[Rfam]
The record is a 98-nucleotide RNA sequence from Pseudomonas sp. v388, which matches "t44 RNA" in Rfam.
Rfam's curators write: This family consists of a number of bacterial RNA genes of between 135 and 170 bases in length.
It is annotated as a small RNA.

RNA sequence: GUCCUGGAAGCCUAAACCCACACACGUGUCGACACGAUGACCUGGGUGCCUUUGGCGGCUCGCCACUGGUUGGUCAUUGGGAUACGUGGAGGCCUAAC
Numbered sequence: 001g002u003c004c005u006g007g008a009a010g011c012c013u014a015a016a017c018c019c020a021c022a023c024a025c026g027u028g029u030c031g032a033c034a035c036g037a038u039g040a041c042c043u044g045g046g047u048g049c050c051u052u053u054g055g056c057g058g059c060u061c062g063c064c065a066c067u068g069g070u071u072g073g074u075c076a077u078u079g080g081g082a083u084a085c086g087u088g089g090a091g092g093c094c095u096a097a098c
Base pairs, nucleotide, nucleotide: 023088024087025086026085027084028083029082030081035079036078037077038076039075040074041073042072048070049069050068